A member of the RNA family "Group II catalytic intron D1-D4-3" from Truepera sp., 179 nucleotides long.
A reference for the family is Bonen and Vogel (2001), "The ins and outs of group II introns", Trends Genet.
The organism belongs to Truepera, within Bacteria.
[Rfam]
RNA sequence: GUCGCCGCGAGGCGGGGUCUGGAGGAAGCCGAACCCGAAGCUGCGGGGCGAUGGACAAAAACCGGAUAUGAGGCGUGGCACAUCUGGGGCGAGCGGGCACGUGACCGCGAAGCCCUCCAUCUGCGGCAGUUGGGAUGUGCUUUGUAAAUCCGGCGCUCGCGCAGUGACAGUGACGUGUC
Dot-bracket structure: .(((((....)))))............(.((...((...(((((((((((...........((((((.....(((.(((((((...((((..((((........))))...))))...................))))))).)))..))))))))))).))))))....).)...)).)